[Rfam]
A member of the RNA family "tRNA" from Bacillus subtilis, 82 nucleotides long.

RNA sequence: GCCGGUGUGGCGGAAUUGGCAGACGCGCACGACUCAAAAUCGUGUUCCUUCUGGAGUGUCGGUUCGACCCCGACCACCGGUA
Numbered sequence: 001g002c003c004g005g006u007g008u009g010g011c012g013g014a015a016u017u018g019g020c021a022g023a024c025g026c027g028c029a030c031g032a033c034u035c036a037a038a039a040u041c042g043u044g045u046u047c048c049u050u051c052u053g054g055a056g057u058g059u060c061g062g063u064u065c066g067a068c069c070c071c072g073a074c075c076a077c078c079g080g081u082a
Base pairs, nucleotide, nucleotide: 001081002080003079004078005077006076007075010026011025012024028044029043030042031041032040058074059073060072061071062070

Notes:
The family's consensus secondary structure is taken from published work. Gene Ontology term of the family: triplet codon-amino acid adaptor activity. It is one of the family's seed sequences.